[Rfam]
RNA: DABA-DC-AT RNA
RNA sequence: CCAAUUCCGAGAGCUUCAUAUUCGGAGCACAUGCACAGCAAGACAAAGGGAGGCUUUGCGCUUGUUGUGCCCGUAGGUACUGGUGAAAUUCGUCAUCAGUAGAAGGGCAUUAAUAGUGCGACCUGUAAGGACGAAAACUCAGGCGCAUAUUGAGGAACCCAACA
Dot-bracket structure: .....((((((.........))))))......((((((((((..................)))))))))).......(((((((((......)))))))))....................((((..............)))).....................